RNA sequence: CUGCAGCCCAUUAAGCCGACCAGGACCCCCCCAAAUGGGGUUUUGGUGUGCACUGGCUGCGAAAAGAGACCCCCCGGCUGUGUAGGGCGCCCACCCCCCACCCCCGGCGCGGCGCCCAAAGGGGCCGGGGGCACAAAA
Numbered sequence: 001c002u003g004c005a006g007c008c009c010a011u012u013a014a015g016c017c018g019a020c021c022a023g024g025a026c027c028c029c030c031c032c033a034a035a036u037g038g039g040g041u042u043u044u045g046g047u048g049u050g051c052a053c054u055g056g057c058u059g060c061g062a063a064a065a066g067a068g069a070c071c072c073c074c075c076g077g078c079u080g081u082g083u084a085g086g087g088c089g090c091c092c093a094c095c096c097c098c099c100a101c102c103c104c105c106g107g108c109g110c111g112g113c114g115c116c117c118a119a120a121g122g123g124g125c126c127g128g129g130g131g132c133a134c135a136a137a138a
Stems, first nucleotide, its partner, number of pairs: 002052004019047004025041004076126003087115005
A member of the RNA family "Small nucleolar RNA SNORA70" from Cephalopterus ornatus, 138 nucleotides long. Pairs were carried over by alignment from the consensus structure, which was predicted with PFOLD. snoRNA U70 seems to be exclusive to mammals and is a member of the H/ACA class of snoRNA which contain H (ANANNA) and ACA box motifs. H/ACA box snoRNAs are involved in the conversion of uridines to pseudouridines (5-ribosyluracil) a constituent of structural RNAs (transfer, ribosomal, small nuclear, and small nucleolar). The literature on the family includes a 2000 paper in IUBMB Life by Charette and Gray, "Pseudouridine in RNA: what, where, how, and why". A search with the family's covariance model found it, with a score of 72 bits. Rfam links the family to the GO terms nucleolus and RNA processing.